[Rfam]
RNA sequence: CGUCCGCCAGCGCGUCGCGCCCGCGGGCGCGUUUU
Numbered sequence: 001c002g003u004c005c006g007c008c009a010g011c012g013c014g015u016c017g018c019g020c021c022c023g024c025g026g027g028c029g030c031g032u033u034u035u
Stems, first nucleotide, its partner, number of pairs: 001029007010020004
Dot-bracket structure: (((((((..((((...))))..)))))))......
Record summary:
This 35-nucleotide sequence from Acuticoccus mangrovi belongs to the Rfam family "ffh sRNA". A search with the family's covariance model found it, with a score of 38 bits. For this family Rfam cites "Identification of candidate structured RNAs in the marine organism 'Candidatus Pelagibacter ubique'" (Meyer et al., BMC Genomics, 2009).